Selenocysteine transfer RNA: a 90-nucleotide RNA from Anaerospora hongkongensis. The source organism's lineage runs through Bacteria, Negativicutes, Selenomonadales, Sporomusaceae and Anaerospora. The literature on the family includes a 2000 paper in FEBS Lett by Mizutani and Goto, "Eukaryotic selenocysteine tRNA has the 9/4 secondary structure". Its family is annotated with triplet codon-amino acid adaptor activity in the Gene Ontology.
[Rfam]
RNA sequence: GGAAGUAGAGAGGCACUGGUGUGCCUACCGGUCUUCAAAACCGUGUUGCGGCCAAACAGUCGUGGGUGGGUUCGAUUCCCAUAUACUUCC
Numbered sequence: 001g002g003a004a005g006u007a008g009a010g011a012g013g014c015a016c017u018g019g020u021g022u023g024c025c026u027a028c029c030g031g032u033c034u035u036c037a038a039a040a041c042c043g044u045g046u047u048g049c050g051g052c053c054a055a056a057c058a059g060u061c062g063u064g065g066g067u068g069g070g071u072u073c074g075a076u077u078c079c080c081a082u083a084u085a086c087u088u089c090c
Stems, first nucleotide, its partner, number of pairs: 001090007009082001011026006029043004047064005067081004